[Rfam]
Rfam assigns this 200-nucleotide sequence from Alphabaculovirus hycuneae to the family "Baculoviridae Nucleocapsid Assembly essential Element". It is one of the family's seed sequences. Rfam classes the family as a cis-regulatory element. Taxonomically the source falls in Alphabaculovirus hycuneae (Viruses, Naldaviricetes, Lefavirales, Alphabaculovirus). From the family's description: Internal cis-element within the ac83 gene. The family's consensus secondary structure was predicted with RNAfold.
RNA sequence: CACUUUCAGCGACGUAUAUUGACCAAUAUACUACAAUCGGACAUUUGCACCGAUCUAUACACUACGAUUUACAAAAAAUAUACUACACUAGCACGCAAAUAUACUACAACUCCGUUUCAAUAUAACUACACUUUCGUAAAACAACCCCAAAAUAUGGUAGUAUAUGCUGAAAAUACACAAUUAAAAAACGCUACGAUUUC
Number, nucleotide and partner (000 for none) at each position: 001c000002a000003c000004u000005u000006u000007c000008a192009g191010c190011g189012a000013c000014g031015u030016a029017u028018a027019u026020u025021g000022a000023c000024c000025a020026a019027u018028a017029u016030a015031c014032u000033a000034c000035a000036a054037u053038c052039g051040g050041a000042c047043a000044u000045u000046u000047g042048c000049a000050c040051c039052g038053a037054u036055c000056u000057a000058u000059a000060c000061a000062c000063u000064a000065c000066g000067a000068u000069u000070u000071a000072c000073a000074a000075a000076a000077a000078a000079u000080a000081u000082a000083c000084u000085a000086c000087a000088c000089u000090a000091g000092c000093a000094c000095g000096c000097a000098a000099a000100u000101a000102u000103a000104c000105u000106a000107c000108a000109a000110c000111u000112c000113c000114g000115u000116u000117u000118c000119a000120a000121u000122a000123u000124a000125a000126c000127u000128a000129c000130a000131c000132u000133u000134u000135c000136g178137u177138a000139a000140a000141a000142c000143a000144a000145c169146c000147c000148c000149a000150a000151a000152a163153u162154a161155u160156g000157g000158u000159a000160g155161u154162a153163u152164a000165u000166g000167c000168u000169g145170a000171a000172a000173a000174u000175a000176c000177a137178c136179a000180a000181u000182u000183a000184a000185a000186a000187a000188a000189c011190g010191c009192u008193a000194c000195g000196a000197u000198u000199u000200c000